[Rfam]
RNA: FMN riboswitch aptamer (RFN element)
Organism: Vibrio viridaestus
RNA sequence: UUUAAUUCUCAGGGCGGGGCGAAAUUCCCCACCGGUGGUAGAUCAAUAUGAUAAGCCCACGAGCGCUCGGACGUUGUCUGAGGUCAGCAGAUCUGGUCAAAGUCCAGAGCCGACGGUUAAAGUCCGGAUGAGAGAGGAUGAAU
Numbered sequence: 001u002u003u004a005a006u007u008c009u010c011a012g013g014g015c016g017g018g019g020c021g022a023a024a025u026u027c028c029c030c031a032c033c034g035g036u037g038g039u040a041g042a043u044c045a046a047u048a049u050g051a052u053a054a055g056c057c058c059a060c061g062a063g064c065g066c067u068c069g070g071a072c073g074u075u076g077u078c079u080g081a082g083g084u085c086a087g088c089a090g091a092u093c094u095g096g097u098c099a100a101a102g103u104c105c106a107g108a109g110c111c112g113a114c115g116g117u118u119a120a121a122g123u124c125c126g127g128a129u130g131a132g133a134g135a136g137g138a139u140g141a142a143u
Stems, first nucleotide, its partner, number of pairs: 003141001005139006017029003031123002033112002035060004055110002063088002092108005114126003